[Rfam]
RNA sequence: AAGCUGCCCGCAUGUUCGCUGAUUCGUCAGCACAUGCCAGCAGCCAGGGUUCCAGGCUGCCGCGGGUCUCUCCCGCGUUGCCCACCAGUCCGCAUCGCAUCAAUUCCGCGGACGCGCGUCCUCGUGACGUCGAUGC
Number, nucleotide and partner (000 for none) at each position: 001a000002a000003g000004c000005u000006g000007c000008c000009c000010g000011c036012a035013u034014g033015u032016u000017c000018g031019c030020u029021g028022a027023u000024u000025c000026g000027u022028c021029a020030g019031c018032a015033c014034a013035u012036g011037c000038c000039a000040g060041c059042a058043g057044c056045c055046a000047g000048g081049g000050u000051u000052c000053c000054a000055g045056g044057c043058u042059g041060c040061c077062g076063c075064g074065g073066g072067u000068c000069u000070c000071u000072c066073c065074c064075g063076c062077g061078u000079u000080g000081c048082c000083c000084a000085c000086c000087a000088g000089u000090c000091c000092g000093c000094a000095u000096c000097g000098c000099a000100u000101c000102a000103a000104u000105u000106c000107c000108g136109c135110g134111g000112a000113c000114g000115c000116g130117c129118g128119u127120c126121c000122u000123c000124g000125u000126g120127a119128c118129g117130u116131c000132g000133a000134u110135g109136c108
Shown here is a 136-nucleotide sequence from Xanthomonas sp. XNM01, a member of the family "radC RNA". The match comes from Rfam's covariance-model search (84 bits). NCBI's taxonomy places the organism under Bacteria, Gammaproteobacteria, Lysobacterales, Lysobacteraceae, Xanthomonas. Rfam classes the family as a cis-regulatory element.